[Rfam]
RNA sequence: AAGUAUUAUAGCUCUUUCAGAAUUUGUCUAGCAGGCUUUCCAGGGUUUUGCUGGAAAGCCUCU
Numbered sequence: 001a002a003g004u005a006u007u008a009u010a011g012c013u014c015u016u017u018c019a020g021a022a023u024u025u026g027u028c029u030a031g032c033a034g035g036c037u038u039u040c041c042a043g044g045g046u047u048u049u050g051c052u053g054g055a056a057a058g059c060c061u062c063u
Base pairs, nucleotide, nucleotide: 034060035059036058037057038056039055040054041053042052043051
The family of this 63-nucleotide RNA sequence from Chlorocebus sabaeus is "U7 small nuclear RNA". The base pairs follow the family's consensus structure, which was predicted with PFOLD. NCBI's taxonomy places the organism under Eukaryota, Opisthokonta, Bilateria, Primates, Chlorocebus.